[Rfam]
RNA sequence: GUCAGAUGAUUUGAAUCUUACUUCCUGAACCUCUGUGAGGACCCAUCAUUCUUAUAGCAUGUUAGAGUUCUGAUGGCA
Numbered sequence: 001g002u003c004a005g006a007u008g009a010u011u012u013g014a015a016u017c018u019u020a021c022u023u024c025c026u027g028a029a030c031c032u033c034u035g036u037g038a039g040g041a042c043c044c045a046u047c048a049u050u051c052u053u054a055u056a057g058c059a060u061g062u063u064a065g066a067g068u069u070c071u072g073a074u075g076g077c078a
Stems, first nucleotide, its partner, number of pairs: 001077004
Record summary
A member of the RNA family "Small nucleolar RNA SNORD28" from Vombatus ursinus, 78 nucleotides long. The family's consensus secondary structure was predicted with PFOLD. A search with the family's covariance model found it, with a score of 74 bits.